[Rfam]
RNA: Glycine riboswitch aptamer
RNA sequence: GCUGGCCCCGUGGGAGAGACCGGUCUUGUGACCGGCGCCGAAGGCGCAACACCGCCCGGAAUCGCUCAGGCAAAAGGACCGUGGGGCCAAU
Numbered sequence: 001g002c003u004g005g006c007c008c009c010g011u012g013g014g015a016g017a018g019a020c021c022g023g024u025c026u027u028g029u030g031a032c033c034g035g036c037g038c039c040g041a042a043g044g045c046g047c048a049a050c051a052c053c054g055c056c057c058g059g060a061a062u063c064g065c066u067c068a069g070g071c072a073a074a075a076g077g078a079c080c081g082u083g084g085g086g087c088c089a090a091u
Stems, first nucleotide, its partner, number of pairs: 006086008020035004037071003040067002044065003050058001